[Rfam]
RNA: L4-Archaeoglobi ribosomal protein leades
RNA sequence: CUGACGACCGCGUAUGGGUCGAUGUCGGUCUCGACAGCCCAUCACUCGCAAAAGGUAAAGCAAAGGUGGGUGAACGCGUGACAGUCAG
Numbered sequence: 001c002u003g004a005c006g007a008c009c010g011c012g013u014a015u016g017g018g019u020c021g022a023u024g025u026c027g028g029u030c031u032c033g034a035c036a037g038c039c040c041a042u043c044a045c046u047c048g049c050a051a052a053a054g055g056u057a058a059a060g061c062a063a064a065g066g067u068g069g070g071u072g073a074a075c076g077c078g079u080g081a082c083a084g085u086c087a088g
Stems, first nucleotide, its partner, number of pairs: 001088005009080005015041004023036005043072007
Dot-bracket structure: (((((...(((((.((((....(((((....))))).)))).(((((((................)))))))...)))))...)))))